[Rfam]
RNA sequence: AAAAAGGCUUAGAAAAAGAGGAGUAAGAAUAAGAAAUAUUAAAGAGAGAAGGGAUUAGGUGAGAGCCCUUUAUAGGAAUUAUUCUGAAGGUAGCUUUGGAGCUUUCCUUGUGAAAUUAUAGUAGCUAGGAACGGUUGUAAAUCGUUAAUUAAUUAAGUGCAUAGAAAAUAGUAUAAUUUUCUAUGAAUAAAGGUGGUACCACGAGCUUUCGUCCUUUCA
Numbered sequence: 001a002a003a004a005a006g007g008c009u010u011a012g013a014a015a016a017a018g019a020g021g022a023g024u025a026a027g028a029a030u031a032a033g034a035a036a037u038a039u040u041a042a043a044g045a046g047a048g049a050a051g052g053g054a055u056u057a058g059g060u061g062a063g064a065g066c067c068c069u070u071u072a073u074a075g076g077a078a079u080u081a082u083u084c085u086g087a088a089g090g091u092a093g094c095u096u097u098g099g100a101g102c103u104u105u106c107c108u109u110g111u112g113a114a115a116u117u118a119u120a121g122u123a124g125c126u127a128g129g130a131a132c133g134g135u136u137g138u139a140a141a142u143c144g145u146u147a148a149u150u151a152a153u154u155a156a157g158u159g160c161a162u163a164g165a166a167a168a169u170a171g172u173a174u175a176a177u178u179u180u181c182u183a184u185g186a187a188u189a190a191a192g193g194u195g196g197u198a199c200c201a202c203g204a205g206c207u208u209u210c211g212u213c214c215u216u217u218c219a
Stems, first nucleotide, its partner, number of pairs: 007102002015097004026085006037074003048071006105130004110125002132144003160185010190216004201212004